Rfam assigns this 67-nucleotide RNA sequence from Cnephaeus nilssonii to the family "mir-9256 microRNA precursor family".
The family has 8 seed sequences and 31,772 matches in Rfam 15.1.
It scores 87 bits against the family's covariance model.
RNA sequence: AUACAUACUGAGUGGCCAGAUAAUUAUGCUCUCUGAACGCAUAAUAAUCUGGCCACUCAGUGUGUAU
Numbered sequence: 001a002u003a004c005a006u007a008c009u010g011a012g013u014g015g016c017c018a019g020a021u022a023a024u025u026a027u028g029c030u031c032u033c034u035g036a037a038c039g040c041a042u043a044a045u046a047a048u049c050u051g052g053c054c055a056c057u058c059a060g061u062g063u064g065u066a067u
Stems, first nucleotide, its partner, number of pairs: 004064014019049003023045006